[Rfam]
RNA sequence: GCAACUAUAUAGUUUAUCCUUCAUAUAUCCUCGAUAAUAUGGAUCGAAAGUAUCUACCAAAUCACCGGAAAUGAUUUGACUAUGAAGGCAGGCUUCUUUUGU
Numbered sequence: 001g002c003a004a005c006u007a008u009a010u011a012g013u014u015u016a017u018c019c020u021u022c023a024u025a026u027a028u029c030c031u032c033g034a035u036a037a038u039a040u041g042g043a044u045c046g047a048a049a050g051u052a053u054c055u056a057c058c059a060a061a062u063c064a065c066c067g068g069a070a071a072u073g074a075u076u077u078g079a080c081u082a083u084g085a086a087g088g089c090a091g092g093c094u095u096c097u098u099u100u101g102u
Stems, first nucleotide, its partner, number of pairs: 018088008031047005058078007
RNA: Purine riboswitch aptamer